The record is a 93-nucleotide RNA from Papaver somniferum, which matches "Small nucleolar RNA U54" in Rfam. About the family: U54 is a C/D box small nucleolar RNA, which acts as a methylation guide for 18S ribosomal RNA in plants. The match comes from Rfam's covariance-model search (47 bits). Gene Ontology terms of the family: nucleolus and RNA processing. The family's consensus secondary structure was predicted with PFOLD.
[Rfam]
RNA sequence: AGCUCAAUGAUUACAUUCCUUUCGAAGGCAAUAUACGCUAUUCUCAUUGGUAUAUUAUCAACAUGAUGAUAACAUAAAAUGUAUAUGAGAGCU
Numbered sequence: 001a002g003c004u005c006a007a008u009g010a011u012u013a014c015a016u017u018c019c020u021u022u023c024g025a026a027g028g029c030a031a032u033a034u035a036c037g038c039u040a041u042u043c044u045c046a047u048u049g050g051u052a053u054a055u056u057a058u059c060a061a062c063a064u065g066a067u068g069a070u071a072a073c074a075u076a077a078a079a080u081g082u083a084u085a086u087g088a089g090a091g092c093u
Stems, first nucleotide, its partner, number of pairs: 001093005
Dot-bracket structure: (((((...................................................................................)))))